[Rfam]
RNA: FMN riboswitch aptamer (RFN element)
RNA sequence: CGUUGUCUUCAGGGCAGGGUGUAAUUCCCGAUCGGCGGUACAGUCCGCGAGCGCGAGAGCGCAUGAAUUGGUGCAACUCCAAUACCGACAGUUAAAGUCUGGAUGAGAGAAGAUUUCG
Dot-bracket structure: ....((((((......(((.......))).[[((((((....[[))))..................(((((.......)))))]])).(((.....]]))).......))))))....